The family of this 141-nucleotide sequence from Aphanothece hegewaldii is "c-di-AMP riboswitch aptamer (ydaO/yuaA leader)". Taxonomically the source falls in Aphanothece hegewaldii (Bacteria, Bacillati, Aphanothecaceae, Aphanothece). On this family, see Barrick et al., Proc Natl Acad Sci U S A 2004: "New RNA motifs suggest an expanded scope for riboswitches in bacterial genetic control". A search with the family's covariance model found it, with a score of 77 bits.
RNA sequence: AGAGUAAGAAAGCUUAAUCUCUCUACAUCAGGGAGAGCGGGGGAACCAAAUCUAGGGGCUUAUUUUUACGGCAACAAGUAAGAAAGGACAUCUCUCAGUCCUAGCCCGGCAGCUAACCUCGUCAGCAUUGAGAGAAGAUUG
Numbered sequence: 001a002g003a004g005u006a007a008g009a010a011a012g013c014u015u016a017a018u019c020u021c022u023c024u025a026c027a028u029c030a031g032g033g034a035g036a037g038c039g040g041g042g043g044a045a046c047c048a049a050a051u052c053u054a055g056g057g058g059c060u061u062a063u064u065u066u067u068a069c070g071g072c073a074a075c076a077a078g079u080a081a082g083a084a085a086g087g088a089c090a091u092c093u094c095u096c097a098g099u100c101c102u103a104g105c106c107c108g109g110c111a112g113c114u115a116a117c118c119u120c121g122u123c124a125g126c127a128u129u130g131a132g133a134g135a136a137g138a139u140u141g
Stems, first nucleotide, its partner, number of pairs: 012126003018036006037122006047055001056107003064083006086101004